A member of the RNA family "abiF RNA" from Leptolyngbya ectocarpi, 37 nucleotides long. It is annotated as a small RNA. Taxonomically the source falls in Leptolyngbya ectocarpi (Bacteria, Cyanobacteriota, Leptolyngbyales, Leptolyngbya). Rfam 15.1 lists 282 matches to the family in 274 species. The base pairs follow the family's consensus structure, which is taken from published work.
RNA sequence: CCCCCCACGCCUCUCAACGAUGCGCACCCUGGGGGGU
Numbered sequence: 001c002c003c004c005c006c007a008c009g010c011c012u013c014u015c016a017a018c019g020a021u022g023c024g025c026a027c028c029c030u031g032g033g034g035g036g037u
Base pairs, nucleotide, nucleotide: 001036002035003034004033005032006031008024009023010022